[Rfam]
RNA: mir-193 microRNA precursor family
RNA sequence: GUCAGAGAUUGGGUCUUUGCGGGCAAGGUGAGUAGUUAAAAGUCCUCUCUCAACUGGCCUACAAAGUCCCAGUUUCUGGU
Numbered sequence: 001g002u003c004a005g006a007g008a009u010u011g012g013g014u015c016u017u018u019g020c021g022g023g024c025a026a027g028g029u030g031a032g033u034a035g036u037u038a039a040a041a042g043u044c045c046u047c048u049c050u051c052a053a054c055u056g057g058c059c060u061a062c063a064a065a066g067u068c069c070c071a072g073u074u075u076c077u078g079g080u
Base pairs, nucleotide, nucleotide: 003078004077005076006075007074008073010071011070012069013068015066016065017064018063019062021060022059023058024057026055027054029052030051031050032049